[Rfam]
Nucleotides: 046
Base pairs, nucleotide, nucleotide: 006021007020008019009018010017011016
Number, partner (000 for none) and nucleotide at each position: 001000u002000c003000a004000a005000a006021g007020g008019c009018u010017c011016u012000u013000u014000u015000c016011a017010g018009a019008g020007c021006c022000a023000c024000u025000c026000a027000a028000u029000u030000u031000c032000u033000g034000a035000g036000u037000a038000a039000g040000a041000g042000c043000u044000a045000g046000u

This 46-nucleotide RNA from Chlorocebus sabaeus belongs to the Rfam family "Histone 3' UTR stem-loop". The base pairs follow the family's consensus structure, which is taken from published work. The mRNAs of metazoan histone genes lack a poly-A tail. 3' end processing occurs at a site between a highly conserved stem-loop (modelled by this family) and a purine rich region around 20 nts downstream (the histone downstream element, or HDE). The stem-loop is bound by a 31 kDa stem-loop binding protein (SLBP - also termed the histone hairpin binding protein, or HBP). Together with U7 snRNA binding of the HDE, SLBP binding nucleate s the formation of the processing complex. The histone 3' UTR stem-loop is also involved in nucleocytoplasmic transport of the mRNA, and in stability regulation and translation efficiency in the cytoplasm. Lineage of the source: Eukaryota > Eumetazoa > Eutheria > Cercopithecinae > Chlorocebus. Rfam classes the family as a cis-regulatory element. A search with the family's covariance model found it, with a score of 37 bits.